[Rfam]
RNA sequence: GACGUCGGAAGCCCGUGCCAGGGCGCGCGAGCGCUCGGGAAAGUCUGAGUUCGACAGUGAGCUGCGAGAGGCAGUCGGCACGAAAGCGCCGCUGCAGGCACUAGAAAAGCACCGCCGCUUGCUCGUUGGCAGAUGAGGCCCCGGCCGAUGCUUAGAGCUCGCGGCGCUGGAAGCCUGCAGAAGUAUCUAUCAGUCAAAUGCACUGGGCUGCUGGGCUCUCCCAGUAGAAACACAAUUCAGACUACUCUCCGACGUC
Dot-bracket structure: ((((..(((..[[.[[[[..((((((....))))))........((((((((........(((((.....)))))((((.(....).)))).(((((((.............(((((............................................)))))......)))))))))).................]]]].]].((((((........))))))........))))).......)))..))))
Numbered sequence: 001g002a003c004g005u006c007g008g009a010a011g012c013c014c015g016u017g018c019c020a021g022g023g024c025g026c027g028c029g030a031g032c033g034c035u036c037g038g039g040a041a042a043g044u045c046u047g048a049g050u051u052c053g054a055c056a057g058u059g060a061g062c063u064g065c066g067a068g069a070g071g072c073a074g075u076c077g078g079c080a081c082g083a084a085a086g087c088g089c090c091g092c093u094g095c096a097g098g099c100a101c102u103a104g105a106a107a108a109g110c111a112c113c114g115c116c117g118c119u120u121g122c123u124c125g126u127u128g129g130c131a132g133a134u135g136a137g138g139c140c141c142c143g144g145c146c147g148a149u150g151c152u153u154a155g156a157g158c159u160c161g162c163g164g165c166g167c168u169g170g171a172a173g174c175c176u177g178c179a180g181a182a183g184u185a186u187c188u189a190u191c192a193g194u195c196a197a198a199u200g201c202a203c204u205g206g207g208c209u210g211c212u213g214g215g216c217u218c219u220c221c222c223a224g225u226a227g228a229a230a231c232a233c234a235a236u237u238c239a240g241a242c243u244a245c246u247c248u249c250c251g252a253c254g255u256c
Stems, first nucleotide, its partner, number of pairs: 001256004007250003012206002015203004021036006045240005050182003061075005076091004081086001093179007113166005208227006
Background
Shown here is a 256-nucleotide sequence from Carpediemonas membranifera, a member of the family "Nuclear RNase P". Ribonuclease P (RNase P) is a ubiquitous endoribonuclease, found in archaea, bacteria and eukarya as well as chloroplasts and mitochondria. Its best characterised activity is the generation of mature 5'-ends of tRNAs by cleaving the 5'-leader elements of precursor-tRNAs. Cellular RNase Ps are ribonucleoproteins. The family is grouped with related families in Rfam's "RNaseP clan". Lineage of the source: Eukaryota > Metamonada > Fornicata > Carpediemonas-like organisms > Carpediemonas.